[Rfam]
RNA sequence: GCCACAUGAUGUGAUGUAGAUGACACGAGCACAUGUUGUGCAGAGAUGACUCAUCAUCUAUCACCCUGUACUGAUGGCU
Numbered sequence: 001g002c003c004a005c006a007u008g009a010u011g012u013g014a015u016g017u018a019g020a021u022g023a024c025a026c027g028a029g030c031a032c033a034u035g036u037u038g039u040g041c042a043g044a045g046a047u048g049a050c051u052c053a054u055c056a057u058c059u060a061u062c063a064c065c066c067u068g069u070a071c072u073g074a075u076g077g078c079u
Stems, first nucleotide, its partner, number of pairs: 001078004029041004

Small nucleolar RNA SNORD83: a 79-nucleotide RNA sequence from Triplophysa rosa. Taxonomically the source falls in Triplophysa (Eukaryota, Metazoa, Neopterygii, Nemacheilidae). Gene Ontology terms of the family: RNA processing and nucleolus. Rfam classes the family as a C/D-box small nucleolar RNA. For this family Rfam cites "Characterisation of the U83 and U84 small nucleolar RNAs: two novel 2'-O-ribose methylation guide RNAs that lack complementarities to ribosomal RNAs" (Jady and Kiss, Nucleic Acids Res, 2000).